[Rfam]
RNA: Flavo-1 RNA
RNA sequence: AAAUAGCCCCGACUUAAGGGAAGAACCUUUUUAUUUUUUUCUUUAAAAAAUAAAAAGUUCUGGAAAGAAGGCGGGAAAAGGG
Numbered sequence: 001a002a003a004u005a006g007c008c009c010c011g012a013c014u015u016a017a018g019g020g021a022a023g024a025a026c027c028u029u030u031u032u033a034u035u036u037u038u039u040u041c042u043u044u045a046a047a048a049a050a051u052a053a054a055a056a057g058u059u060c061u062g063g064a065a066a067g068a069a070g071g072c073g074g075g076a077a078a079a080g081g082g
Stems, first nucleotide, its partner, number of pairs: 009074003013070002023060004029055011